Source information: This 62-nucleotide RNA sequence from Propithecus coquereli belongs to the Rfam family "U7 small nuclear RNA". The source organism's lineage runs through Eukaryota, Bilateria, Craniata, Amniota and Propithecus. The base pairs follow the family's consensus structure, which was predicted with PFOLD. About the family: Animal histone pre-mRNAs are spliced by a different mechanism than nuclear pre-mRNAs and self-splicing introns.
[Rfam]
RNA sequence: CAGUGUUACAGCUCUUUUAGAAUUUAUCUAGCAGGUUUUCUGGUCCUUGCUGGAAGACCCCC
Number, nucleotide and partner (000 for none) at each position: 001c000002a000003g000004u000005g000006u000007u000008a000009c000010a000011g000012c000013u000014c000015u000016u000017u000018u000019a000020g000021a000022a000023u000024u000025u000026a000027u000028c000029u000030a000031g000032c000033a000034g059035g058036u057037u056038u055039u054040c053041u052042g051043g050044u049045c000046c000047u000048u000049g044050c043051u042052g041053g040054a039055a038056g037057a036058c035059c034060c000061c000062c000
Notes: For this family Rfam cites "3' end processing of mouse histone pre-mRNA: evidence for additional base-pairing between U7 snRNA and pre-mRNA" (Spycher et al., Nucleic Acids Res, 1994).